Background:
This 84-nucleotide RNA sequence from Ensifer meliloti belongs to the Rfam family "tRNA". Gene Ontology term of the family: triplet codon-amino acid adaptor activity. Lineage of the source: Bacteria > Pseudomonadati > Alphaproteobacteria > Rhizobiaceae > Ensifer. By type it is a transfer RNA. Transfer RNA (tRNA) molecules are approximately 80 nucleotides in length.
RNA sequence: GCCCAGAUGGCGGAAUUGGUAGACGCGCCAGCUUCAGGUGCUGGUACUCGAAAGGGUGUGGAGGUUCGAGUCCUCUUCUGGGCA
Numbered sequence: 001g002c003c004c005a006g007a008u009g010g011c012g013g014a015a016u017u018g019g020u021a022g023a024c025g026c027g028c029c030a031g032c033u034u035c036a037g038g039u040g041c042u043g044g045u046a047c048u049c050g051a052a053a054g055g056g057u058g059u060g061g062a063g064g065u066u067c068g069a070g071u072c073c074u075c076u077u078c079u080g081g082g083c084a
Stems, first nucleotide, its partner, number of pairs: 001083007010026003028044005060076005